[Rfam]
RNA sequence: AUACGUUCUCAGGGUGAGGUGCAAUUCCCUACCGGUGGUGAUUUAGAAAUAAUAAGUCCACGAGCACGAAUAAGUGUUGAUUUGGUGAAAAUCCAAAACCGACGGUGACAGUCCGGAUGGAAGAGAAGAUAA
Numbered sequence: 001a002u003a004c005g006u007u008c009u010c011a012g013g014g015u016g017a018g019g020u021g022c023a024a025u026u027c028c029c030u031a032c033c034g035g036u037g038g039u040g041a042u043u044u045a046g047a048a049a050u051a052a053u054a055a056g057u058c059c060a061c062g063a064g065c066a067c068g069a070a071u072a073a074g075u076g077u078u079g080a081u082u083u084g085g086u087g088a089a090a091a092u093c094c095a096a097a098a099c100c101g102a103c104g105g106u107g108a109c110a111g112u113c114c115g116g117a118u119g120g121a122a123g124a125g126a127a128g129a130u131a132a
Stems, first nucleotide, its partner, number of pairs: 003130001006127005018028002031112002033101002035061004056099002064077003081097005103115003
Description:
Shown here is a 132-nucleotide sequence, a member of the family "FMN riboswitch aptamer (RFN element)". Pairs were carried over by alignment from the consensus structure, which is taken from published work.